[Rfam]
RNA sequence: GUCAGAAACCCCACGCCUAAAGGCGGGGGCUUGAAAAAAGCCCUAAUCUGACCAGUCUAAGUUCAAAACUCGAACUACGUUUAAGGCAAGAGUUUAAAGACCUACCAGGGGAUGCUUUCGCUAGUCCCCUGCUCUAGAAAUUGAGGAUUAAACAUCUGUACAAGGGUUAAGGAAGUGUCCUCAAUAUAGUUACCGACCUUAAACAUUGACGAAGCUAACCUUAC
Numbered sequence: 001g002u003c004a005g006a007a008a009c010c011c012c013a014c015g016c017c018u019a020a021a022g023g024c025g026g027g028g029g030c031u032u033g034a035a036a037a038a039a040g041c042c043c044u045a046a047u048c049u050g051a052c053c054a055g056u057c058u059a060a061g062u063u064c065a066a067a068a069c070u071c072g073a074a075c076u077a078c079g080u081u082u083a084a085g086g087c088a089a090g091a092g093u094u095u096a097a098a099g100a101c102c103u104a105c106c107a108g109g110g111g112a113u114g115c116u117u118u119c120g121c122u123a124g125u126c127c128c129c130u131g132c133u134c135u136a137g138a139a140a141u142u143g144a145g146g147a148u149u150a151a152a153c154a155u156c157u158g159u160a161c162a163a164g165g166g167u168u169a170a171g172g173a174a175g176u177g178u179c180c181u182c183a184a185u186a187u188a189g190u191u192a193c194c195g196a197c198c199u200u201a202a203a204c205a206u207u208g209a210c211g212a213a214g215c216u217a218a219c220c221u222u223a224c
Stems, first nucleotide, its partner, number of pairs: 001052006010029002012026001016023002031040002055210003059206001060076005079204008102137002106131008114220001116218002121214002140185009152176002155173003159169002
Annotation:
The family of this 224-nucleotide RNA sequence from Nostoc commune is "HNH endonuclease-associated RNA and ORF (HEARO) RNA". Pairs were carried over by alignment from the consensus structure, which is taken from published work. Rfam classes the family as a non-coding RNA gene. Lineage of the source: Bacteria > Bacillati > Cyanobacteriota > Nostoc > Nostoc commune.